[Rfam]
RNA sequence: CGAGGGUGCGUGGUAUUCCGUCUCCAAAAGGGGCGGAGCCACAAGGGAAAGCGCAUCCUCAGUCAGAUUUCCACUAGCUCAAUUGGCAGAGCAGUUGACUUCGGAUCAACGGGUUGACGGUUCGAGUCCGUCGUGGGGUUCACACCCAAGCGAAAGCCUUUCCCCGGCAACAGUGCGACAGUGUCCUAAUCCCUGACCCGGCAACGGGAAUCAGGGCGCCCGAGGGUCCGCAAGACCCGGAGGUGUUCAUGCGCGAGUAACGGUAGCGGAGAGACCGGCCGGUCUUUCUUCGACGCCAAAGCGGUGGAGAAGCUGUUGUCGUGACGCGUGGUGCCACGUACGGCACUGGACAUGGUGACUACCGUCGAGAGGCGGUGGAUACGCGGAAAACCCCCUGGCAGGGGGAAUACAGCCCGCCAAAGGUCACCGGGAGCGGCGAGGUAAUCUCACUCGCC
Numbered sequence: 001c002g003a004g005g006g007u008g009c010g011u012g013g014u015a016u017u018c019c020g021u022c023u024c025c026a027a028a029a030g031g032g033g034c035g036g037a038g039c040c041a042c043a044a045g046g047g048a049a050a051g052c053g054c055a056u057c058c059u060c061a062g063u064c065a066g067a068u069u070u071c072c073a074c075u076a077g078c079u080c081a082a083u084u085g086g087c088a089g090a091g092c093a094g095u096u097g098a099c100u101u102c103g104g105a106u107c108a109a110c111g112g113g114u115u116g117a118c119g120g121u122u123c124g125a126g127u128c129c130g131u132c133g134u135g136g137g138g139u140u141c142a143c144a145c146c147c148a149a150g151c152g153a154a155a156g157c158c159u160u161u162c163c164c165c166g167g168c169a170a171c172a173g174u175g176c177g178a179c180a181g182u183g184u185c186c187u188a189a190u191c192c193c194u195g196a197c198c199c200g201g202c203a204a205c206g207g208g209a210a211u212c213a214g215g216g217c218g219c220c221c222g223a224g225g226g227u228c229c230g231c232a233a234g235a236c237c238c239g240g241a242g243g244u245g246u247u248c249a250u251g252c253g254c255g256a257g258u259a260a261c262g263g264u265a266g267c268g269g270a271g272a273g274a275c276c277g278g279c280c281g282g283u284c285u286u287u288c289u290u291c292g293a294c295g296c297c298a299a300a301g302c303g304g305u306g307g308a309g310a311a312g313c314u315g316u317u318g319u320c321g322u323g324a325c326g327c328g329u330g331g332u333g334c335c336a337c338g339u340a341c342g343g344c345a346c347u348g349g350a351c352a353u354g355g356u357g358a359c360u361a362c363c364g365u366c367g368a369g370a371g372g373c374g375g376u377g378g379a380u381a382c383g384c385g386g387a388a389a390a391c392c393c394c395c396u397g398g399c400a401g402g403g404g405g406a407a408u409a410c411a412g413c414c415c416g417c418c419a420a421a422g423g424u425c426a427c428c429g430g431g432a433g434c435g436g437c438g439a440g441g442u443a444a445u446c447u448c449a450c451u452c453g454c455c
Base pairs, nucleotide, nucleotide: 002060003059004058005057006056007055008054009053010042011041012040013039014038017037018036019035020034021033022032023031024030045164046163047162048161049160050159051158150231151230165321166320167319168318169317170316171315172314173313174312182352183351184350185349186348191216192215193214194213195212196211197208198207199206217245218244219243220242225237226236227235228234248306249305250304251302252301262289263288272285273284274283275282330347331346332345333344334343335342354428355427356426357425358424359423360377361376362375363374364373365372366371378446379445380444383417384416385415386414436454437453438452
Shown here is a 455-nucleotide RNA from Gordonia amarae, a member of the family "Giant, ornate, lake- and Lactobacillales-derived (GOLLD) RNA". Taxonomically the source falls in Gordonia amarae (Bacteria, Actinomycetes, Gordoniaceae, Gordonia).